[Rfam]
RNA sequence: GAAAACAUAUCGGGGAGCUGAUAGCAAUCGGCUGAGAGGAUACUGAUUCGUAUCGACCCGUAAACCUGAUCUGGGUAAUGCCAGCGUAGGGAUGAAUAUUCAUUCUUAUU
Numbered sequence: 001g002a003a004a005a006c007a008u009a010u011c012g013g014g015g016a017g018c019u020g021a022u023a024g025c026a027a028u029c030g031g032c033u034g035a036g037a038g039g040a041u042a043c044u045g046a047u048u049c050g051u052a053u054c055g056a057c058c059c060g061u062a063a064a065c066c067u068g069a070u071c072u073g074g075g076u077a078a079u080g081c082c083a084g085c086g087u088a089g090g091g092a093u094g095a096a097u098a099u100u101c102a103u104u105c106u107u108a109u110u
Stems, first nucleotide, its partner, number of pairs: 007097002010094001011060004017032005039054005065090004071084004